[Rfam]
RNA: Clostridiales-1 RNA
Organism: Firmicutes bacterium CAG:227
RNA sequence: UGAUGCUAAGGUCAAAAAGUUCAAAAAUCGUUCGGGCUUGCACGACAAGAUUUUUGACUUUGGGGCCGCCUAAACAUGAAAAUGUAGCGAUUUACGUAGUAAAUCAGCGGAAUUUGAAUGUUUAUAGAAUUGCGAGAGCUGUUUUACAGCGAAGCAAUUCGUAGGCAUCA
Number, nucleotide and partner (000 for none) at each position: 001u170002g169003a168004u167005g166006c165007u164008a000009a000010g000011g066012u065013c064014a000015a000016a000017a060018a059019g058020u057021u000022c056023a055024a054025a053026a052027a051028u050029c049030g000031u047032u045033c044034g043035g000036g041037c000038u000039u000040g000041c036042a000043c034044g033045a032046c000047a031048a000049g029050a028051u027052u026053u025054u024055u023056g022057a020058c019059u018060u017061u000062g000063g000064g013065g012066c011067c000068g000069c000070c000071u124072a123073a122074a121075c120076a119077u118078g000079a000080a115081a114082a113083u112084g000085u000086a000087g108088c107089g105090a104091u103092u102093u101094a100095c099096g000097u000098a000099g095100u094101a093102a092103a091104u090105c089106a000107g088108c087109g000110g000111a000112a083113u082114u081115u080116g000117a000118a077119u076120g075121u074122u073123u072124a071125u000126a000127g160128a159129a158130u157131u156132g155133c154134g000135a000136g000137a000138g150139c149140u148141g147142u000143u000144u000145u000146a000147c141148a140149g139150c138151g000152a000153a000154g133155c132156a131157a130158u129159u128160c127161g000162u000163a000164g007165g006166c005167a004168u003169c002170a001